[Rfam]
Background: Small nucleolar RNA snoR27: a 93-nucleotide RNA from Hibiscus syriacus. The literature on the family includes a 2001 paper in RNA by Brown et al., "Multiple snoRNA gene clusters from Arabidopsis". Clan: snR68 clan. It is annotated as a C/D-box small nucleolar RNA. Rfam 15.1 lists 649 matches to the family in 212 species. A search with the family's covariance model found it, with a score of 73 bits. The base pairs follow the family's consensus structure, which was predicted with WAR.

RNA sequence: AUUGGAUCCAUGAUGGUAUUUUAUAAACUGCGUUAUCUAUCUGAACUUUCCUUGGAAAGGGGUUGAAGAUAAUUUUCCGUACUGAGAUCCUGU
Numbered sequence: 001a002u003u004g005g006a007u008c009c010a011u012g013a014u015g016g017u018a019u020u021u022u023a024u025a026a027a028c029u030g031c032g033u034u035a036u037c038u039a040u041c042u043g044a045a046c047u048u049u050c051c052u053u054g055g056a057a058a059g060g061g062g063u064u065g066a067a068g069a070u071a072a073u074u075u076u077c078c079g080u081a082c083u084g085a086g087a088u089c090c091u092g093u
Base pairs, nucleotide, nucleotide: 001093002092004090005089006088007087